[Rfam]
RNA sequence: AACGCACCUAGGCUGAUCCCCGAAAGCAAGAAACCUUAUCUUGUUGGUGCGUUUCCAUUCAUAAGG
Numbered sequence: 001a002a003c004g005c006a007c008c009u010a011g012g013c014u015g016a017u018c019c020c021c022g023a024a025a026g027c028a029a030g031a032a033a034c035c036u037u038a039u040c041u042u043g044u045u046g047g048u049g050c051g052u053u054u055c056c057a058u059u060c061a062u063a064a065g066g
Base pairs, nucleotide, nucleotide: 001053002052003051004050005049006048007047008046011021012020026044027043028042029041030040034066035065036064037063038062039061